[Rfam]
RNA: nhaA-I RNA
RNA sequence: GGGUGCGUGAUCCGGCCGUGGGUCAGCAGGCAAUGCCGCUGGUCGGGCCGCCAGCG
Numbered sequence: 001g002g003g004u005g006c007g008u009g010a011u012c013c014g015g016c017c018g019u020g021g022g023u024c025a026g027c028a029g030g031c032a033a034u035g036c037c038g039c040u041g042g043u044c045g046g047g048c049c050g051c052c053a054g055c056g
Stems, first nucleotide, its partner, number of pairs: 005027002008025005037056007